The family of this 170-nucleotide sequence from Firmicutes bacterium CAG:170 is "glmS glucosamine-6-phosphate activated ribozyme aptamer". NCBI's taxonomy places the organism under Bacteria, Bacillati, Bacillota. The family's consensus secondary structure is taken from published work. Rfam classes the family as a riboswitch.
RNA sequence: UUCCCAUCACAAGCGCCGUGUUCCUGCGGAAGAAAACAGACUCCCGGCAGGAUGACGAGGUGAAGCGUGAUCGAAGUGAUCGGCGGAUGCGCUUCCGUGCCGCUUUUCGCGCGUGACGCAGUCAGAAAUAUGCGGGUAACUGCAAAACAGAGGGGCUGCGGGAAAAGCAC
Numbered sequence: 001u002u003c004c005c006a007u008c009a010c011a012a013g014c015g016c017c018g019u020g021u022u023c024c025u026g027c028g029g030a031a032g033a034a035a036a037c038a039g040a041c042u043c044c045c046g047g048c049a050g051g052a053u054g055a056c057g058a059g060g061u062g063a064a065g066c067g068u069g070a071u072c073g074a075a076g077u078g079a080u081c082g083g084c085g086g087a088u089g090c091g092c093u094u095c096c097g098u099g100c101c102g103c104u105u106u107u108c109g110c111g112c113g114u115g116a117c118g119c120a121g122u123c124a125g126a127a128a129u130a131u132g133c134g135g136g137u138a139a140c141u142g143c144a145a146a147a148c149a150g151a152g153g154g155g156c157u158g159c160g161g162g163a164a165a166a167g168c169a170c
Stems, first nucleotide, its partner, number of pairs: 022052006029045001062095005071083004096113005117160007131144005